[Rfam]
RNA sequence: UAACUACCAAACCCUAUCUCCACCCCCACGUGGUGAUCGCUGGGAGUUCUUUCAUUAUGAAAAACUGCAGACGGAGGAGG
Numbered sequence: 001u002a003a004c005u006a007c008c009a010a011a012c013c014c015u016a017u018c019u020c021c022a023c024c025c026c027c028a029c030g031u032g033g034u035g036a037u038c039g040c041u042g043g044g045a046g047u048u049c050u051u052u053c054a055u056u057a058u059g060a061a062a063a064a065c066u067g068c069a070g071a072c073g074g075a076g077g078a079g080g
Base pairs, nucleotide, nucleotide: 013080014079015078017076019074020073022034023033024032046066048064050062051061052060053059054058
The family of this 80-nucleotide RNA from Hermetia illucens is "drz-agam-1 ribozyme". The family's consensus secondary structure is taken from published work. A search with the family's covariance model found it, with a score of 37 bits. Its family is annotated with catalytic activity in the Gene Ontology. A reference for the family is Webb et al. (2009), "Widespread occurrence of self-cleaving ribozymes", Science.